[Rfam]
RNA: Archaeal RNase P
Organism: Halorutilus salinus
RNA sequence: GCGGAGGAAGAACGGCACCCGUGCCUACGUAACGAGGAAAGUCCCCCCACCGCGGGGCAGGUGACUUCGCGCAAGCGAAGGUUCCGAAAGGGACGGCUCUCGAACAGACACGACACGUCCUCCCUCGACCGAUGAAGCAGGCGAACCGAGCCGUGAGGCGAGGAAGCUAACCCGCAGAGGAUAGACGGGAAGGGAACGGUGGAACGGCGAAACCUCACCGGUGCAAGCCGACGCGACGGUAGUCCCGCAACGGCGUCGGUGCUUCGCGUCCGUGCGAGCGGCGCGAGGUUCGUGUAUGAACGCAAACAUCCGUACGCGACAAACGUCCGUACGCGAACCCAGCUAAAUGCCGCCGAAACAGAAGGGGGCUUACUCUCCUCCGC
Dot-bracket structure: ((.(((((((..[[[[...(((.........)))....(((.(((((((((........((((((((((......)))))(((((....)))))((...(((.............((((((.(((...........((...................................))...........))).)))..))).........)))..)))))))))))....(((.....(((.....................................................................................))).....)).).............]]]]...........)))))))).)).))))).))
Numbered sequence: 001g002c003g004g005a006g007g008a009a010g011a012a013c014g015g016c017a018c019c020c021g022u023g024c025c026u027a028c029g030u031a032a033c034g035a036g037g038a039a040a041g042u043c044c045c046c047c048c049a050c051c052g053c054g055g056g057g058c059a060g061g062u063g064a065c066u067u068c069g070c071g072c073a074a075g076c077g078a079a080g081g082u083u084c085c086g087a088a089a090g091g092g093a094c095g096g097c098u099c100u101c102g103a104a105c106a107g108a109c110a111c112g113a114c115a116c117g118u119c120c121u122c123c124c125u126c127g128a129c130c131g132a133u134g135a136a137g138c139a140g141g142c143g144a145a146c147c148g149a150g151c152c153g154u155g156a157g158g159c160g161a162g163g164a165a166g167c168u169a170a171c172c173c174g175c176a177g178a179g180g181a182u183a184g185a186c187g188g189g190a191a192g193g194g195a196a197c198g199g200u201g202g203a204a205c206g207g208c209g210a211a212a213c214c215u216c217a218c219c220g221g222u223g224c225a226a227g228c229c230g231a232c233g234c235g236a237c238g239g240u241a242g243u244c245c246c247g248c249a250a251c252g253g254c255g256u257c258g259g260u261g262c263u264u265c266g267c268g269u270c271c272g273u274g275c276g277a278g279c280g281g282c283g284c285g286a287g288g289u290u291c292g293u294g295u296a297u298g299a300a301c302g303c304a305a306a307c308a309u310c311c312g313u314a315c316g317c318g319a320c321a322a323a324c325g326u327c328c329g330u331a332c333g334c335g336a337a338c339c340c341a342g343c344u345a346a347a348u349g350c351c352g353c354c355g356a357a358a359c360a361g362a363a364g365g366g367g368g369c370u371u372a373c374u375c376u377c378c379u380c381c382g383c
Stems, first nucleotide, its partner, number of pairs: 001383002004380005009374002013352004020034003039371003043368005048223004060219005065080005081094005095214002100210003116198003119193003123189003137175002228335001229333002236326003